[Rfam]
RNA sequence: GCUGGCGUAGCUCAGUUGGUAGAGCAGCUGAUUUGUAAUCAGCCGGUCGAAGGUUCGAGUCCUUUUGCCAGCU
Numbered sequence: 001g002c003u004g005g006c007g008u009a010g011c012u013c014a015g016u017u018g019g020u021a022g023a024g025c026a027g028c029u030g031a032u033u034u035g036u037a038a039u040c041a042g043c044c045g046g047u048c049g050a051a052g053g054u055u056c057g058a059g060u061c062c063u064u065u066u067g068c069c070a071g072c073u
Base pairs, nucleotide, nucleotide: 001072002071003070004069005068006067007066010025011024012023013022027043028042029041030040031039049065050064051063052062053061

The record is a 73-nucleotide RNA sequence from Ruminococcaceae bacterium CPB6, which matches "tRNA" in Rfam.
Pairs were carried over by alignment from the consensus structure, which is taken from published work.
Rfam classes the family as a transfer RNA.
It scores 70 bits against the family's covariance model.